[Rfam]
RNA sequence: AUGCAACUCAAGCCGAACAUUGUACGGGGGAUGAUUGACCGGUGUUUAUUUCAUUACGGGAUAAGCGCCUUGGGGUGAAUCAGAGCUGGCGUUCGCCGGCAUGUAGGGUACUCCUUGACCCGAACCCGACAACUAACCUCGCAGGCUACCUUAAGGAGGAACA
Numbered sequence: 001a002u003g004c005a006a007c008u009c010a011a012g013c014c015g016a017a018c019a020u021u022g023u024a025c026g027g028g029g030g031a032u033g034a035u036u037g038a039c040c041g042g043u044g045u046u047u048a049u050u051u052c053a054u055u056a057c058g059g060g061a062u063a064a065g066c067g068c069c070u071u072g073g074g075g076u077g078a079a080u081c082a083g084a085g086c087u088g089g090c091g092u093u094c095g096c097c098g099g100c101a102u103g104u105a106g107g108g109u110a111c112u113c114c115u116u117g118a119c120c121c122g123a124a125c126c127c128g129a130c131a132a133c134u135a136a137c138c139u140c141g142c143a144g145g146c147u148a149c150c151u152u153a154a155g156g157a158g159g160a161a162c163a
Stems, first nucleotide, its partner, number of pairs: 011147004018022001025141005073127003081103002106121004
RNA: c-di-AMP riboswitch aptamer (ydaO/yuaA leader)
Organism: Paenibacillus popilliae